Background:
HDV ribozyme from F. prausnitzii: a 78-nucleotide sequence from Faecalibacterium prausnitzii. Gene Ontology term of the family: catalytic activity. Taxonomically the source falls in Faecalibacterium prausnitzii (Bacteria, Bacillati, Bacillota, Faecalibacterium). Rfam 15.1 lists 3,803 matches to the family in 91 species.
RNA sequence: GCCACUCGAAACUUUGCACACCUCUACGCGGUGAGCGGCAGGCAACACAGUAAAAGGUGCUGUGGCGAAGAUGCAGAU
Numbered sequence: 001g002c003c004a005c006u007c008g009a010a011a012c013u014u015u016g017c018a019c020a021c022c023u024c025u026a027c028g029c030g031g032u033g034a035g036c037g038g039c040a041g042g043c044a045a046c047a048c049a050g051u052a053a054a055a056g057g058u059g060c061u062g063u064g065g066c067g068a069a070g071a072u073g074c075a076g077a078u
Stems, first nucleotide, its partner, number of pairs: 001039003005035003020032003046064007